Shown here is a 97-nucleotide RNA sequence from Nicotiana tabacum, a member of the family "MIR6152 microRNA precursor family". Rfam 15.1 lists 5,807 matches to the family in 3 species. Pairs were carried over by alignment from the consensus structure, which was predicted with RNAalifold.
[Rfam]
RNA sequence: UAGACAGAUUAUUAUAUUCGAUUGUAUUCACAGAGUGAAAUAGGGGAUUACAUUGUUUUUAAAACGGAAAGCGAAUCAAUUAAUAUAAUAGACUCCU
Numbered sequence: 001u002a003g004a005c006a007g008a009u010u011a012u013u014a015u016a017u018u019c020g021a022u023u024g025u026a027u028u029c030a031c032a033g034a035g036u037g038a039a040a041u042a043g044g045g046g047a048u049u050a051c052a053u054u055g056u057u058u059u060u061a062a063a064a065c066g067g068a069a070a071g072c073g074a075a076u077c078a079a080u081u082a083a084u085a086u087a088a089u090a091g092a093c094u095c096c097u
Stems, first nucleotide, its partner, number of pairs: 003095002009091007017083002020081002023078002026076004031071001035065002037059007